[Rfam]
RNA sequence: GCCCUGUUUUUCUCCGAGCCUGCACCCUAUAUUGGCAGCGCCGGUUCGCCGGCUAUGGAAAUAAAUGACCGUCGCAAUAAACCAUUCGGACCCGGGGGCAGUACCCGGCGCCUCCACCCAAGCCCACCCUCCCGUGGUGGGUUUCGGCGGGGGCGAACCAGGAUCGACGAGGGCGUAAAGGACGAGUUUUUUCCCGGUAUUGUUCCGCCGUUAUCGGGCUAUGCAAUAGUUGCAAACGACAACUAUGCUCCGGUUGCUCAGGCUGCGUAACGCAGUUUGAAAGACCGAUCUGAAGUCCUAGCGGGUUAAGCUCCGCUAGGCGGGGUUCGGAGGCACCUGGCAACAGAAGCCUCCACU
Numbered sequence: 001g002c003c004c005u006g007u008u009u010u011u012c013u014c015c016g017a018g019c020c021u022g023c024a025c026c027c028u029a030u031a032u033u034g035g036c037a038g039c040g041c042c043g044g045u046u047c048g049c050c051g052g053c054u055a056u057g058g059a060a061a062u063a064a065a066u067g068a069c070c071g072u073c074g075c076a077a078u079a080a081a082c083c084a085u086u087c088g089g090a091c092c093c094g095g096g097g098g099c100a101g102u103a104c105c106c107g108g109c110g111c112c113u114c115c116a117c118c119c120a121a122g123c124c125c126a127c128c129c130u131c132c133c134g135u136g137g138u139g140g141g142u143u144u145c146g147g148c149g150g151g152g153g154c155g156a157a158c159c160a161g162g163a164u165c166g167a168c169g170a171g172g173g174c175g176u177a178a179a180g181g182a183c184g185a186g187u188u189u190u191u192u193c194c195c196g197g198u199a200u201u202g203u204u205c206c207g208c209c210g211u212u213a214u215c216g217g218g219c220u221a222u223g224c225a226a227u228a229g230u231u232g233c234a235a236a237c238g239a240c241a242a243c244u245a246u247g248c249u250c251c252g253g254u255u256g257c258u259c260a261g262g263c264u265g266c267g268u269a270a271c272g273c274a275g276u277u278u279g280a281a282a283g284a285c286c287g288a289u290c291u292g293a294a295g296u297c298c299u300a301g302c303g304g305g306u307u308a309a310g311c312u313c314c315g316c317u318a319g320g321c322g323g324g325g326u327u328c329g330g331a332g333g334c335a336c337c338u339g340g341c342a343a344c345a346g347a348a349g350c351c352u353c354c355a356c357u
Stems, first nucleotide, its partner, number of pairs: 040053005057194005067187001070184004082173002086170003092108005109155007195210004200221001202219001204218003323338004329354006

The family of this 357-nucleotide RNA sequence from Bradyrhizobium sp. LMTR 3 is "Alphaproteobacteria transfer-messenger RNA". It scores 303 bits against the family's covariance model. NCBI's taxonomy places the organism under Bacteria, Pseudomonadati, Alphaproteobacteria, Nitrobacteraceae, Bradyrhizobium. The family's consensus secondary structure is taken from published work. It is annotated as a non-coding RNA gene.